[Rfam]
Nucleotides: 201
Base pairs, nucleotide, nucleotide: 028178029177030176031175033173034172035171036170037169038168039167040166041165042164043163044162045161047159048158049157050156
Number, partner (000 for none) and nucleotide at each position: 001000a002000a003000u004000g005000u006000a007000u008000g009000a010000c011000g012000c013000c014000g015000u016000u017000g018000a019000c020000u021000u022000u023000u024000u025000g026000u027000a028178u029177a030176a031175c032000g033173u034172u035171u036170g037169a038168c039167c040166a041165u042164u043163c044162g045161u046000c047159u048158u049157a050156u051000u052000c053000a054000a055000a056000a057000a058000a059000u060000u061000u062000a063000u064000g065000u066000a067000a068000u069000u070000a071000u072000c073000a074000u075000u076000u077000a078000u079000u080000u081000u082000a083000u084000u085000a086000u087000g088000a089000c090000u091000u092000g093000a094000u095000u096000u097000g098000u099000c100000a101000u102000c103000a104000a105000a106000u107000g108000u109000u110000c111000u112000u113000u114000a115000a116000g117000c118000a119000u120000g121000a122000c123000a124000u125000a126000a127000a128000u129000a130000u131000u132000u133000u134000c135000a136000u137000a138000u139000u140000u141000g142000c143000a144000c145000a146000a147000a148000a149000a150000u151000u152000u153000u154000a155000a156050a157049u158048a159047a160000a161045a162044c163043g164042a165041a166040u167039g168038g169037u170036c171035a172034a173033a174000c175031g176030u177029u178028g179000a180000u181000c182000g183000a184000a185000a186000a187000g188000u189000c190000a191000a192000c193000g194000g195000c196000g197000u198000u199000a200000u201000a